RNA sequence: UCGUGCUAGGCGGGGAGUUAGCGGUGCCCUGUCGCCCGAAAUCCGCUCAGCGGGGCUGAAUCCCCUCUGGAGGGCCUGCGCUGAACAGGCCGUCGUGACCUUCGGCACCGAUUGGACACCGCGCAACGGGCGGAUGUGAACCCCGUCAGGUCCGGAAGGAAGCAGCGGUAAGCAUUGCAGCCCGUGUCGUGGUUCACUCUAAUCCGGAGCCGGAGGGAAAGCGGCUUGCACUCAGCCGGUUCGACAGAGGGUGCACGG
Numbered sequence: 001u002c003g004u005g006c007u008a009g010g011c012g013g014g015g016a017g018u019u020a021g022c023g024g025u026g027c028c029c030u031g032u033c034g035c036c037c038g039a040a041a042u043c044c045g046c047u048c049a050g051c052g053g054g055g056c057u058g059a060a061u062c063c064c065c066u067c068u069g070g071a072g073g074g075c076c077u078g079c080g081c082u083g084a085a086c087a088g089g090c091c092g093u094c095g096u097g098a099c100c101u102u103c104g105g106c107a108c109c110g111a112u113u114g115g116a117c118a119c120c121g122c123g124c125a126a127c128g129g130g131c132g133g134a135u136g137u138g139a140a141c142c143c144c145g146u147c148a149g150g151u152c153c154g155g156a157a158g159g160a161a162g163c164a165g166c167g168g169u170a171a172g173c174a175u176u177g178c179a180g181c182c183c184g185u186g187u188c189g190u191g192g193u194u195c196a197c198u199c200u201a202a203u204c205c206g207g208a209g210c211c212g213g214a215g216g217g218a219a220a221g222c223g224g225c226u227u228g229c230a231c232u233c234a235g236c237c238g239g240u241u242c243g244a245c246a247g248a249g250g251g252u253g254c255a256c257g258g
Stems, first nucleotide, its partner, number of pairs: 001258006009057003012030004017025003035054004063251007072242005080236005086228002091223002096218001099215001102214002104211003109206001110204007118193006124186002127184005133176005143168004151160003
Bacterial large signal recognition particle RNA: a 258-nucleotide RNA sequence from Desulfoglaeba alkanexedens. The family's consensus secondary structure is taken from published work. A reference for the family is Rosenblad et al. (2009), "Kinship in the SRP RNA family", RNA Biol. About the family: The signal recognition particle (SRP) is a universally conserved ribonucleoprotein involved in the co-translational targeting of proteins to membranes.